[Rfam]
RNA sequence: GCACCAUCCAGAGCGGCCGAGAGAUCUGGCUCGAGGACGCCGCAGCAACCCCCCGGUCGCUCGGGCGUGGGUGCUACCGCCAGGGCCGAUGGAGG
Dot-bracket structure: .(.(((((....(((((...(((..[[[[)))......)))))((((.(((.((.........)).)..))))))...(]]]]...)))))).).